[Rfam]
RNA sequence: CCAGCAGGUUGCAAUUACAGUGCUUCAUUCUGUGGGAGUACUGCCAUUAUCCUGCUAACAGUAACCAACUGCCGUGGAACCUUCUAUCACAUGGAAAGUUCCAUGUGGUGAUUCUCUGUGGCAGUGACAUAA
Numbered sequence: 001c002c003a004g005c006a007g008g009u010u011g012c013a014a015u016u017a018c019a020g021u022g023c024u025u026c027a028u029u030c031u032g033u034g035g036g037a038g039u040a041c042u043g044c045c046a047u048u049a050u051c052c053u054g055c056u057a058a059c060a061g062u063a064a065c066c067a068a069c070u071g072c073c074g075u076g077g078a079a080c081c082u083u084c085u086a087u088c089a090c091a092u093g094g095a096a097a098g099u100u101c102c103a104u105g106u107g108g109u110g111a112u113u114c115u116c117u118g119u120g121g122c123a124g125u126g127a128c129a130u131a132a
Stems, first nucleotide, its partner, number of pairs: 003056006018043009068125010085110011
Notes: The family of this 132-nucleotide RNA from Conger conger is "Small nucleolar RNA SNORA69". From the family's description: U69 is a member of the H/ACA class of small nucleolar RNAs (snoRNAs) which act as guides in the the modification of uridines to pseudouridines. The family's RNA type in Rfam is H/ACA-box small nucleolar RNA. The base pairs follow the family's consensus structure, which was predicted with PFOLD. Taxonomically the source falls in Conger (Eukaryota, Metazoa, Chordata, Vertebrata). It scores 80 bits against the family's covariance model.